[Rfam]
RNA sequence: CAAAUAGACCUGAGCAAAAAAACAUGAUAUAAUUAGGUUGUCAUUUAAUAUGACUAUGGCAAUAAACUGCAAAAAGAAUAAGUAUACUGGACCUGGGGGCGGUACCCAGCAUCUCCACCAUUAAAAAACAUGGGGAUGUAGAAGAAUUGACAGGUAUGUAAAGUUUUGUUUUUACCUGGGAAGAUAUCCCCAUUAAAAGAUUCAAAAAAAUAAAUGCAAAUGAUAAUUAUGGAUCAAGACUUGGUAGCGUUGCUGUUUAAGACUUGUUCAUAAAAUUCUUCUGAAUUUAUUCAGAUGUGGGGUUAUUCCAGGUCCUAGCAACAGAAUCCUGGACU
Numbered sequence: 001c002a003a004a005u006a007g008a009c010c011u012g013a014g015c016a017a018a019a020a021a022a023c024a025u026g027a028u029a030u031a032a033u034u035a036g037g038u039u040g041u042c043a044u045u046u047a048a049u050a051u052g053a054c055u056a057u058g059g060c061a062a063u064a065a066a067c068u069g070c071a072a073a074a075a076g077a078a079u080a081a082g083u084a085u086a087c088u089g090g091a092c093c094u095g096g097g098g099g100c101g102g103u104a105c106c107c108a109g110c111a112u113c114u115c116c117a118c119c120a121u122u123a124a125a126a127a128a129c130a131u132g133g134g135g136a137u138g139u140a141g142a143a144g145a146a147u148u149g150a151c152a153g154g155u156a157u158g159u160a161a162a163g164u165u166u167u168g169u170u171u172u173u174a175c176c177u178g179g180g181a182a183g184a185u186a187u188c189c190c191c192a193u194u195a196a197a198a199g200a201u202u203c204a205a206a207a208a209a210a211u212a213a214a215u216g217c218a219a220a221u222g223a224u225a226a227u228u229a230u231g232g233a234u235c236a237a238g239a240c241u242u243g244g245u246a247g248c249g250u251u252g253c254u255g256u257u258u259a260a261g262a263c264u265u266g267u268u269c270a271u272a273a274a275a276u277u278c279u280u281c282u283g284a285a286u287u288u289a290u291u292c293a294g295a296u297g298u299g300g301g302g303u304u305a306u307u308c309c310a311g312g313u314c315c316u317a318g319c320a321a322c323a324g325a326a327u328c329c330u331g332g333a334c335u
Base pairs, nucleotide, nucleotide: 040054041053042052043051044050058176059175061173062172069169070168071167072166073165074164083156084155085154087153088152089151093109094108095107096106097105110138111137112136113135114134115133116132177192178191179190180189183203184202187199300316301315302314307332308331311328312327
RNA: Alphaproteobacteria transfer-messenger RNA